[Rfam]
RNA sequence: UUUCCCGUUUUAGUACCAUUCAUUCAUCCCACCACGAAUGACUGGCUAUGCGAAUGGGAUACAGAAUCUCCUGUCAUUGUCUGAAGGAGGGAUCGGCAUCAUCCGUUUCUCUUACAUGAAUUGACAGCACAUGAGCUA
Numbered sequence: 001u002u003u004c005c006c007g008u009u010u011u012a013g014u015a016c017c018a019u020u021c022a023u024u025c026a027u028c029c030c031a032c033c034a035c036g037a038a039u040g041a042c043u044g045g046c047u048a049u050g051c052g053a054a055u056g057g058g059a060u061a062c063a064g065a066a067u068c069u070c071c072u073g074u075c076a077u078u079g080u081c082u083g084a085a086g087g088a089g090g091g092a093u094c095g096g097c098a099u100c101a102u103c104c105g106u107u108u109c110u111c112u113u114a115c116a117u118g119a120a121u122u123g124a125c126a127g128c129a130c131a132u133g134a135g136c137u138a
Stems, first nucleotide, its partner, number of pairs: 004058004016045003073125004088113004
RNA: Small nucleolar RNA SNORA29
Organism: Megalops atlanticus